[Rfam]
RNA sequence: CGUCCAUUAGCUCAGUGGUAGAGCGUUGUACUUAUGAGAAACCUUAAUUUUCCUUAGCCAUGCAACGGCCGCCAGUUCGACCCUGGCAUGGACGA
Dot-bracket structure: (((((((..((((.......)))).(((((..............................))))).....(((((.......)))))))))))).
Numbered sequence: 001c002g003u004c005c006a007u008u009a010g011c012u013c014a015g016u017g018g019u020a021g022a023g024c025g026u027u028g029u030a031c032u033u034a035u036g037a038g039a040a041a042c043c044u045u046a047a048u049u050u051u052c053c054u055u056a057g058c059c060a061u062g063c064a065a066c067g068g069c070c071g072c073c074a075g076u077u078c079g080a081c082c083c084u085g086g087c088a089u090g091g092a093c094g095a
Stems, first nucleotide, its partner, number of pairs: 001094007010024004026065005071087005

This 95-nucleotide RNA from Clavulina sp. PMI_390 belongs to the Rfam family "tRNA". A search with the family's covariance model found it, with a score of 53 bits. The organism belongs to Clavulina, within Eukaryota.